[Rfam]
RNA: Small nucleolar RNA SNORD71
RNA sequence: UGUGCUGUCGGAAGAUGAGACCUCAGAGUGAUCCAUCGGCAGAGUGCCUGGCACCAUGGUGACACUCAAGCAGCUGACACGGCACA
Numbered sequence: 001u002g003u004g005c006u007g008u009c010g011g012a013a014g015a016u017g018a019g020a021c022c023u024c025a026g027a028g029u030g031a032u033c034c035a036u037c038g039g040c041a042g043a044g045u046g047c048c049u050g051g052c053a054c055c056a057u058g059g060u061g062a063c064a065c066u067c068a069a070g071c072a073g074c075u076g077a078c079a080c081g082g083c084a085c086a
Stems, first nucleotide, its partner, number of pairs: 002085007010075002014033003018029001036062003040058001044054003